Description: Rfam assigns this 184-nucleotide sequence from Salarias fasciatus to the family "Small nucleolar RNA SNORD97". The family's consensus secondary structure was predicted with WAR. Rfam links the family to the GO terms RNA processing and nucleolus.
RNA sequence: AUGCCCAGUGAUUAUAAAAAGACGCGUUAUUCUGAGGGACACAACCAGCUGCUGGUCUCCUCCUCUGCUCUGCAUUCUGCCUUUACUCUCCUCCGUCUCUCCUGUCCCUCCUCUGCUCCUCUCUGUCUCUACAUUUCUAACCGGGAGCUGGUCCACUGAUUGCGAUUAUGAGAGCUGAGGGCGU
Dot-bracket structure: ((((((............................((((.............................................................))))...........................................................................))))))
Numbered sequence: 001a002u003g004c005c006c007a008g009u010g011a012u013u014a015u016a017a018a019a020a021g022a023c024g025c026g027u028u029a030u031u032c033u034g035a036g037g038g039a040c041a042c043a044a045c046c047a048g049c050u051g052c053u054g055g056u057c058u059c060c061u062c063c064u065c066u067g068c069u070c071u072g073c074a075u076u077c078u079g080c081c082u083u084u085a086c087u088c089u090c091c092u093c094c095g096u097c098u099c100u101c102c103u104g105u106c107c108c109u110c111c112u113c114u115g116c117u118c119c120u121c122u123c124u125g126u127c128u129c130u131a132c133a134u135u136u137c138u139a140a141c142c143g144g145g146a147g148c149u150g151g152u153c154c155a156c157u158g159a160u161u162g163c164g165a166u167u168a169u170g171a172g173a174g175c176u177g178a179g180g181g182c183g184u
Stems, first nucleotide, its partner, number of pairs: 001184006035103004